[Rfam]
RNA sequence: AUGGGAGAGGUUCGCGAACUCCCUCUAUAAAAAACUAAUGGCGC
Numbered sequence: 001a002u003g004g005g006a007g008a009g010g011u012u013c014g015c016g017a018a019c020u021c022c023c024u025c026u027a028u029a030a031a032a033a034a035c036u037a038a039u040g041g042c043g044c
Stems, first nucleotide, its partner, number of pairs: 006026005016036001
RNA: PreQ1 (pre queuosine) riboswitch aptamer
Organism: Paenibacillus selenitireducens